[Rfam]
RNA sequence: GCUUCCGAGGAGCGCUGCGAGGCGCCGCAUCAGUCGGCCCCCAGGCUCGGAGUUCUUCAAACUGCGCUCACCUCAA
Number, nucleotide and partner (000 for none) at each position: 001g000002c000003u052004u051005c050006c049007g048008a047009g000010g000011a000012g000013c000014g000015c000016u000017g000018c000019g000020a000021g040022g039023c000024g038025c037026c036027g035028c000029a000030u000031c000032a000033g000034u000035c027036g026037g025038c024039c022040c021041c000042c000043a000044g000045g000046c000047u008048c007049g006050g005051a004052g003053u000054u000055c000056u000057u000058c000059a000060a000061a000062c000063u000064g000065c000066g000067c000068u000069c000070a000071c000072c000073u000074c000075a000076a000
Annotation
This 76-nucleotide RNA sequence from Sulfuritalea sp. belongs to the Rfam family "SAH (S-adenosyl-L-homocysteine) riboswitch aptamer". A reference for the family is Wang et al. (2008), "Riboswitches that sense S-adenosylhomocysteine and activate genes involved in coenzyme recycling", Mol Cell.